TPP riboswitch aptamer (THI element): a 115-nucleotide RNA sequence from Paenirhodobacter populi. The match comes from Rfam's covariance-model search (73 bits).

[Rfam]
Nucleotides: 115
Base pairs, nucleotide, nucleotide: 007102008101009100010099011065012064013063014062016059017041018040019039020038021037048058049057050056051055071096072095073094077090078089079088080087
Number, partner (000 for none) and nucleotide at each position: 001000g002000a003000u004000g005000u006000c007102a008101c009100c010099u011065c012064g013063g014062g015000g016059u017041g018040c019039c020038g021037g022000g023000g024000g025000u026000g027000c028000c029000c030000u031000g032000c033000g034000c035000g036000c037021c038020c039019g040018g041017c042000u043000g044000a045000g046000a047000u048058g049057c050056g051055g052000a053000u054000a055051c056050c057049g058048c059016g060000a061000a062014c063013c064012c065011g066000u067000u068000g069000a070000a071096c072095c073094u074000g075000a076000a077090c078089c079088g080087g081000u082000u083000a084000g085000c086000a087080c088079c089078g090077g091000c092000g093000g094073a095072g096071g097000g098000a099010a100009g101008g102007u103000a104000u105000c106000c107000g108000g109000g110000u111000u112000c113000c114000c115000c